[Rfam]
RNA sequence: AAUCGUGCUCCGGGGUCGGUGAAAUUCCGAACCGGCGGUGAUAGUCCGCGAACCGCACCUGCUGUGAGAAGGCAUGGCGCGGCCGAACCGGUGAAAUUCCGGUGCCGACAGUACAGUCUGGAUGGUAGGCAGCACGAGC
Numbered sequence: 001a002a003u004c005g006u007g008c009u010c011c012g013g014g015g016u017c018g019g020u021g022a023a024a025u026u027c028c029g030a031a032c033c034g035g036c037g038g039u040g041a042u043a044g045u046c047c048g049c050g051a052a053c054c055g056c057a058c059c060u061g062c063u064g065u066g067a068g069a070a071g072g073c074a075u076g077g078c079g080c081g082g083c084c085g086a087a088c089c090g091g092u093g094a095a096a097u098u099c100c101g102g103u104g105c106c107g108a109c110a111g112u113a114c115a116g117u118c119u120g121g122a123u124g125g126u127a128g129g130c131a132g133c134a135c136g137a138g139c
Stems, first nucleotide, its partner, number of pairs: 003137007010128001017029003031117002033107002035049004044105002053082004087103005109120003

FMN riboswitch aptamer (RFN element): a 139-nucleotide RNA from Rothia aeria. The RFN element is a highly conserved domain that is found frequently in the 5'-untranslated regions of prokaryotic mRNAs that encode for flavin mononucleotide (FMN) biosynthesis and transport proteins. Rfam links the family to the GO term FMN binding. The literature on the family includes a 2009 paper in Nature by Serganov et al., "Coenzyme recognition and gene regulation by a flavin mononucleotide riboswitch". The match comes from Rfam's covariance-model search (99 bits).